[Rfam]
Shown here is a 120-nucleotide RNA sequence from Firmicutes bacterium CAG:822, a member of the family "Ribosomal protein L10 leader". This family is a putative r-protein leader autoregulatory structure found in B. subtilis and other low-GC Gram-positive bacteria. The family's RNA type in Rfam is cis-regulatory leader. The match comes from Rfam's covariance-model search (72 bits).
RNA sequence: CUCGUGAAUUUGAUUAUGCCGUAGACAGUAGGUGCUGAAAAGCUUAAUUUCCUACCGAGGAUACUUAUAUAUAAAGUACUUUCGCUCUGGCAUACACGCUAGAGCUUUUAUAUUACGGCG
Numbered sequence: 001c002u003c004g005u006g007a008a009u010u011u012g013a014u015u016a017u018g019c020c021g022u023a024g025a026c027a028g029u030a031g032g033u034g035c036u037g038a039a040a041a042g043c044u045u046a047a048u049u050u051c052c053u054a055c056c057g058a059g060g061a062u063a064c065u066u067a068u069a070u071a072u073a074a075a076g077u078a079c080u081u082u083c084g085c086u087c088u089g090g091c092a093u094a095c096a097c098g099c100u101a102g103a104g105c106u107u108u109u110a111u112a113u114u115a116c117g118g119c120g
Base pairs, nucleotide, nucleotide: 028055029054030053031052032051034043035042036041084105085104086103087102088101089100090099091098